This 84-nucleotide RNA sequence from Chlorocebus sabaeus belongs to the Rfam family "Small nucleolar RNA SNORD45". Rfam classes the family as a C/D-box small nucleolar RNA. Pairs were carried over by alignment from the consensus structure, which was predicted with PFOLD. The match comes from Rfam's covariance-model search (89 bits). Lineage of the source: Eukaryota > Chordata > Vertebrata > Mammalia > Chlorocebus. A reference for the family is Galardi et al. (2002), "Purified box C/D snoRNPs are able to reproduce site-specific 2'-O-methylation of target RNA in vitro", Mol Cell Biol.
[Rfam]
RNA sequence: GGUCAAUGAUGUUUUGGCAUGUAUUAUCUGAAUCUAUUGCUGAUGUGUAAUAACACUUUAGCUCUAGAAUUACUCUGAGACCUU
Number, nucleotide and partner (000 for none) at each position: 001g082002g081003u080004c079005a000006a000007u000008g000009a000010u000011g000012u000013u000014u000015u000016g000017g000018c000019a000020u000021g000022u000023a000024u000025u000026a000027u000028c000029u000030g000031a000032a000033u000034c000035u000036a000037u000038u000039g000040c000041u000042g000043a000044u000045g000046u000047g000048u000049a000050a000051u000052a000053a000054c000055a000056c000057u000058u000059u000060a000061g000062c000063u000064c000065u000066a000067g000068a000069a000070u000071u000072a000073c000074u000075c000076u000077g000078a000079g004080a003081c002082c001083u000084u000